[Rfam]
This 74-nucleotide RNA sequence from Myotis lucifugus belongs to the Rfam family "mir-9193 microRNA precursor family". The organism belongs to Myotis, within Eukaryota. Gene Ontology terms of the family: RISC complex and miRNA-mediated post-transcriptional gene silencing. The family has 2 seed sequences and 6,008 matches in Rfam 15.1.
RNA sequence: UCUGGGGGAGUGGGGUCCCUCAGCCCAGAUUGUGAGAAGGUGCAAGCCAUGCUGAGUGACCCCACGAGUGCACA
Numbered sequence: 001u002c003u004g005g006g007g008g009a010g011u012g013g014g015g016u017c018c019c020u021c022a023g024c025c026c027a028g029a030u031u032g033u034g035a036g037a038a039g040g041u042g043c044a045a046g047c048c049a050u051g052c053u054g055a056g057u058g059a060c061c062c063c064a065c066g067a068g069u070g071c072a073c074a
Stems, first nucleotide, its partner, number of pairs: 003072002006069001010065001012063006019056006028047001030045005